Description
Rfam assigns this 96-nucleotide sequence from Lucilia cuprina to the family "mir-210 microRNA precursor family". Lineage of the source: Eukaryota > Metazoa > Protostomia > Luciliinae > Lucilia. Rfam 15.1 lists 790 matches to the family in 722 species. On this family, see Cai et al., Proc Natl Acad Sci U S A 2005: "Kaposi's sarcoma-associated herpesvirus expresses an array of viral microRNAs in latently infected cells". Gene Ontology terms of the family: RISC complex and miRNA-mediated post-transcriptional gene silencing.
[Rfam]
RNA sequence: AUAGUACUUAUUGCAGCUGCUGACCACUGCACAAGAUUAGAUUUAAUGACUCUUGUGCGUGUGACAAUGGCUAUUGUAAGAUGCUAAAAUCUCCAA
Numbered sequence: 001a002u003a004g005u006a007c008u009u010a011u012u013g014c015a016g017c018u019g020c021u022g023a024c025c026a027c028u029g030c031a032c033a034a035g036a037u038u039a040g041a042u043u044u045a046a047u048g049a050c051u052c053u054u055g056u057g058c059g060u061g062u063g064a065c066a067a068u069g070g071c072u073a074u075u076g077u078a079a080g081a082u083g084c085u086a087a088a089a090u091c092u093c094c095a096a
Base pairs, nucleotide, nucleotide: 007080008079009078010077011076015072016071017070018069019068021066022065024063025061026060028059029058030057031056032055033054035052036051